[Rfam]
Nucleotides: 360
Base pairs, nucleotide, nucleotide: 001356002355003354004353005352006351007350020329021328022327023326024325026323027322028321032317033316034315035314037312038311039310040309043303044302045301046300047299048069049068050067051066052065056081057080058079059078060077061076062075116136117135118134119132120131121130122129140174141173142172143171148166149165150164151163155188156187157186158185159184160183161182191219192218193217194216197213198212199211206237209234210233240276241275242274244270245269246268248265249264256295257294258293259292261290262289333349334348335347336346337345
Number, partner (000 for none) and nucleotide at each position: 001356g002355g003354g004353g005352g006351c007350g008000c009000c010000a011000u012000g013000g014000u015000u016000u017000c018000g019000a020329c021328u022327g023326g024325a025000a026323g027322u028321c029000u030000g031000c032317g033316g034315u035314g036000c037312u038311g039310g040309c041000u042000g043303c044302a045301u046300g047299u048069g049068a050067a051066g052065g053000u054000u055000a056081a057080u058079c059078g060077g061076c062075u063000g064000g065052c066051c067050u068049u069048c070000u071000a072000a073000a074000a075062a076061g077060c078059c079058g080057a081056u082000u083000a084000a085000a086000a087000a088000a089000a090000u091000a092000a093000a094000u095000g096000c097000a098000g099000a100000g101000u102000c103000u104000a105000a106000c107000g108000a109000c110000c111000u112000u113000g114000c115000u116136c117135u118134g119132g120131c121130u122129g123000c124000c125000u126000a127000a128000u129122u130121a131120g132119u133000u134118c135117a136116g137000c138000c139000g140174c141173g142172u143171c144000a145000g146000a147000a148166c149165c150164u151163c152000a153000a154000c155188g156187c157186c158185u159184g160183c161182u162000a163151g164150a165149g166148g167000g168000g169000a170000c171143g172142a173141c174140g175000a176000a177000g178000a179000c180000a181000c182161a183160g184159c185158a186157g187156g188155c189000u190000g191219g192218u193217g194216c195000a196000a197213u198212g199211c200000g201000g202000g203000g204000u205000u206237g207000c208000c209234g210233c211199g212198c213197a214000a215000c216194g217193c218192a219191c220000g221000a222000g223000a224000c225000u226000u227000c228000c229000a230000c231000a232000g233210g234209c235000a236000a237206c238000u239000a240276g241275c242274g243000a244270g245269c246268u247000u248265g249264c250000c251000u252000a253000g254000u255000u256295g257294a258293c259292g260000c261290a262289u263000a264249g265248c266000g267000a268246a269245g270244c271000a272000g273000c274242c275241g276240c277000g278000a279000a280000a281000g282000c283000a284000g285000c286000a287000a288000u289262a290261u291000g292259c293258g294257u295256c296000u297000g298000a299047a300046c301045a302044u303043g304000g305000a306000g307000a308000u309040g310039c311038u312037g313000u314035c315034a316033u317032c318000a319000a320000u321028g322027g323026c324000c325024u326023u327022c328021a329020g330000g331000a332000c333349a334348c335347g336346g337345g338000u339000u340000c341000g342000a343000c344000u345337c346336c347335c348334g349333u350007c351006g352005c353004c354003u355002c356001c357000a358000c359000c360000a

Record summary
Shown here is a 360-nucleotide RNA sequence from Akkermansia muciniphila, a member of the family "transfer-messenger RNA". Its family is annotated with RNA catabolic process in the Gene Ontology. The family's RNA type in Rfam is non-coding RNA gene. NCBI's taxonomy places the organism under Bacteria, Verrucomicrobiia, Verrucomicrobiales, Akkermansia, Akkermansia muciniphila. About the family: Bacterial tmRNA, also known as 10Sa RNA or SsrA, is named for its dual tRNA and mRNA-like properties. It scores 133 bits against the family's covariance model.